Nucleotides: 138
Base pairs, nucleotide, nucleotide: 004058005057006056007055016045017044018043019042072125073124074123075122093113094112095111096110
Number, partner (000 for none) and nucleotide at each position: 001000c002000g003000u004058c005057c006056u007055g008000u009000g010000u011000u012000a013000g014000u015000a016045c017044c018043a019042c020000c021000c022000c023000c024000u025000g026000c027000u028000g029000c030000u031000a032000a033000u034000c035000a036000g037000u038000g039000u040000g041000u042019g043018u044017g045016g046000c047000u048000a049000u050000g051000c052000u053000a054000a055007c056006a057005g058004g059000a060000c061000a062000g063000a064000g065000a066000a067000a068000g069000u070000g071000u072125a073124u074123c075122a076000g077000a078000g079000u080000c081000u082000g083000a084000a085000g086000a087000g088000g089000c090000u091000c092000c093113a094112g095111a096110g097000u098000c099000u100000c101000u102000c103000c104000u105000g106000u107000u108000g109000u110096c111095u112094c113093u114000a115000u116000a117000u118000g119000a120000a121000c122075u123074g124073a125072u126000a127000c128000a129000a130000c131000a132000a133000u134000c135000a136000c137000a138000a
Background
Small nucleolar RNA SNORA29: a 138-nucleotide RNA sequence from Hemibagrus wyckioides. The literature on the family includes a 2001 paper in EMBO J by Huttenhofer et al., "RNomics: an experimental approach that identifies 201 candidates for novel, small, non-messenger RNAs in mouse". The family's RNA type in Rfam is H/ACA-box small nucleolar RNA. Rfam links the family to the GO terms RNA processing and nucleolus. It scores 54 bits against the family's covariance model. The source organism's lineage runs through Eukaryota, Bilateria, Clupeocephala, Ostariophysi and Hemibagrus. Rfam's curators write: ACA29 is a member of the H/ACA class of snoRNA that guide the sites of modification of uridines to pseudouridines.